[Rfam]
Rfam assigns this 138-nucleotide RNA from Myotis lucifugus to the family "Small nucleolar RNA SNORA8".
Clan: SNORA8 clan.
By type it is an H/ACA-box small nucleolar RNA.
Taxonomically the source falls in Myotis (Eukaryota, Metazoa, Gnathostomata, Laurasiatheria).
About the family: ACA8 is a member of the H/ACA class of snoRNA that guide the sites of modification of uridines to pseudouridines.

RNA sequence: UACACUGCAUGGUAUCUGCAUUCAGCAGUUUAUUCCUGCUGGGUGUUCAAAGGACAGUGCGAUAUAAAUUCAGUAUCUGGCAUCGUUGGUUUUCUCGGCUUCAAGCAUGUUAAACCUGGUAAUUUGGCGCGUCGUGCG
Number, nucleotide and partner (000 for none) at each position: 001u000002a000003c059004a058005c057006u056007g055008c000009a000010u000011g000012g000013u000014a000015u053016c052017u051018g046019c045020a044021u043022u042023c041024a040025g039026c038027a037028g036029u000030u000031u000032a000033u000034u000035c000036c028037u027038g026039c025040u024041g023042g022043g021044u020045g019046u018047u000048c000049a000050a000051a017052g016053g015054a000055c007056a006057g005058u004059g003060c000061g000062a000063u127064a000065u000066a124067a123068a000069u121070u119071c118072a117073g116074u000075a000076u000077c000078u000079g000080g106081c105082a000083u103084c000085g000086u000087u000088g000089g000090u000091u000092u000093u000094c000095u000096c000097g000098g000099c000100u000101u000102c000103a083104a000105g081106c080107a000108u000109g000110u000111u000112a000113a000114a000115c000116c073117u072118g071119g070120u000121a069122a000123u067124u066125u000126g000127g063128c000129g000130c000131g000132u000133c000134g000135u000136g000137c000138g000